[Rfam]
Background: The family of this 77-nucleotide sequence from Cyclopterus lumpus is "Small nucleolar RNA SNORD83".

RNA sequence: GCCACAUGAUGAGCAGAGUAGAUGCAGUAGCUCUCGGGCUGUGAUGACCUGCUAUCUAUCACCCUGUUCUGAUGGCU
Numbered sequence: 001g002c003c004a005c006a007u008g009a010u011g012a013g014c015a016g017a018g019u020a021g022a023u024g025c026a027g028u029a030g031c032u033c034u035c036g037g038g039c040u041g042u043g044a045u046g047a048c049c050u051g052c053u054a055u056c057u058a059u060c061a062c063c064c065u066g067u068u069c070u071g072a073u074g075g076c077u
Stems, first nucleotide, its partner, number of pairs: 001076004030039003
Gene Ontology terms of the family: nucleolus and RNA processing. The source organism's lineage runs through Eukaryota, Vertebrata, Osteoglossocephalai, Acanthomorphata and Cyclopterus. The literature on the family includes a 2000 paper in Nucleic Acids Res by Jady and Kiss, "Characterisation of the U83 and U84 small nucleolar RNAs: two novel 2'-O-ribose methylation guide RNAs that lack complementarities to ribosomal RNAs". Rfam 15.1 lists 1,393 matches to the family in 644 species.